RNA sequence: GUAGAUGCUCAUCCCACUUCUUAUGACAGCAAUGCUUCAUAAACCAAGGGAUGACGCAAAGCCGAUUAUCGGUGCCUAUUGUCCACUGUAGAUGAUCAAGAGCUAAUCCUCUUACCAUCAAUUAACGGGCGAAACGUUGAGUGAGGCACCAUCCGUCUGUAGACCUGAUUGUAUUUUACACCUGCUUCGGCAGGUGUUUUUUU
Numbered sequence: 001g002u003a004g005a006u007g008c009u010c011a012u013c014c015c016a017c018u019u020c021u022u023a024u025g026a027c028a029g030c031a032a033u034g035c036u037u038c039a040u041a042a043a044c045c046a047a048g049g050g051a052u053g054a055c056g057c058a059a060a061g062c063c064g065a066u067u068a069u070c071g072g073u074g075c076c077u078a079u080u081g082u083c084c085a086c087u088g089u090a091g092a093u094g095a096u097c098a099a100g101a102g103c104u105a106a107u108c109c110u111c112u113u114a115c116c117a118u119c120a121a122u123u124a125a126c127g128g129g130c131g132a133a134a135c136g137u138u139g140a141g142u143g144a145g146g147c148a149c150c151a152u153c154c155g156u157c158u159g160u161a162g163a164c165c166u167g168a169u170u171g172u173a174u175u176u177u178a179c180a181c182c183u184g185c186u187u188c189g190g191c192a193g194g195u196g197u198u199u200u201u202u203u
Stems, first nucleotide, its partner, number of pairs: 001062002006058003009054004014050002017048001019041001027034001071150007081130004091119004155164003178197008
The record is a 203-nucleotide RNA sequence from Providencia heimbachae, which matches "GlmZ RNA activator of glmS mRNA" in Rfam. About the family: This RNA was discovered in E. coli during a large scale screen. The sraJ gene was expressed in early logarithmic phase, but its level decreased with cell growth. For this family Rfam cites "Novel small RNA-encoding genes in the intergenic regions of Escherichia coli" (Argaman et al., Curr Biol, 2001). It scores 140 bits against the family's covariance model. It is annotated as a small RNA. Clan: Glm clan.